The record is a 74-nucleotide RNA sequence from Taxus chinensis, which matches "Plastid-ycf2 5UTR RNA" in Rfam. The match comes from Rfam's covariance-model search (73 bits). Rfam describes the family as follows. Plastid ycf2 is a non-coding RNA (ncRNA) recognised in plastids. NCBI's taxonomy places the organism under Eukaryota, Tracheophyta, Acrogymnospermae, Cupressales, Taxus. The family's RNA type in Rfam is cis-regulatory element.

[Rfam]
RNA sequence: AUGCAUCCAGAAAGAAUUAAACCCACGACUUCCCAAUUAUGAGUUGGGUACUUUUACCAUUCAGCCAUGGAUGU
Numbered sequence: 001a002u003g004c005a006u007c008c009a010g011a012a013a014g015a016a017u018u019a020a021a022c023c024c025a026c027g028a029c030u031u032c033c034c035a036a037u038u039a040u041g042a043g044u045u046g047g048g049u050a051c052u053u054u055u056a057c058c059a060u061u062c063a064g065c066c067a068u069g070g071a072u073g074u
Stems, first nucleotide, its partner, number of pairs: 003074006010026001014022001039068003043065007